The family of this 96-nucleotide sequence from Muricoccus roseus is "Bacterial small signal recognition particle RNA". NCBI's taxonomy places the organism under Bacteria, Pseudomonadota, Alphaproteobacteria, Roseomonadaceae, Muricoccus. The family's RNA type in Rfam is non-coding RNA gene. The match comes from Rfam's covariance-model search (60 bits).
RNA sequence: GAAGGCCGGUCGCGGACGGGCGCCUCGUCGACCCGGUCAGGUCCGGAAGGAAGCAGCCGAGGCGGGUAACGUCUGGGUCGCGGUCCGGUCUUCCAC
Numbered sequence: 001g002a003a004g005g006c007c008g009g010u011c012g013c014g015g016a017c018g019g020g021c022g023c024c025u026c027g028u029c030g031a032c033c034c035g036g037u038c039a040g041g042u043c044c045g046g047a048a049g050g051a052a053g054c055a056g057c058c059g060a061g062g063c064g065g066g067u068a069a070c071g072u073c074u075g076g077g078u079c080g081c082g083g084u085c086c087g088g089u090c091u092u093c094c095a096c
Stems, first nucleotide, its partner, number of pairs: 003091005009084006017075006024066006034059004042051003